[Rfam]
RNA: S4-Clostridia ribosomal protein leader
RNA sequence: GAAAGGCUGCAGGCGGCUGCAGCUGGGCGUUUGUGCGCCCCAGUUAGA
Number, nucleotide and partner (000 for none) at each position: 001g000002a000003a000004a000005g024006g023007c022008u021009g020010c019011a018012g017013g000014c000015g000016g000017c012018u011019g010020c009021a008022g007023c006024u005025g040026g039027g038028c037029g036030u035031u000032u000033g000034u000035g030036c029037g028038c027039c026040c025041c000042a000043g000044u000045u000046a000047g000048a000